[Rfam]
The record is a 72-nucleotide sequence from Phaedon cochleariae, which matches "mir-970 microRNA precursor family" in Rfam. The match comes from Rfam's covariance-model search (60 bits). Pairs were carried over by alignment from the consensus structure, which was predicted with RNAalifold.
RNA sequence: UUGCUGCAGCCGGGCGUUUGUCGUACUGAUAGUGUUUUGCUAGCUAUCAUAAGACACACGCGGCUGUAGCGA
Numbered sequence: 001u002u003g004c005u006g007c008a009g010c011c012g013g014g015c016g017u018u019u020g021u022c023g024u025a026c027u028g029a030u031a032g033u034g035u036u037u038u039g040c041u042a043g044c045u046a047u048c049a050u051a052a053g054a055c056a057c058a059c060g061c062g063g064c065u066g067u068a069g070c071g072a
Stems, first nucleotide, its partner, number of pairs: 001072006008065004014061003019056004027049005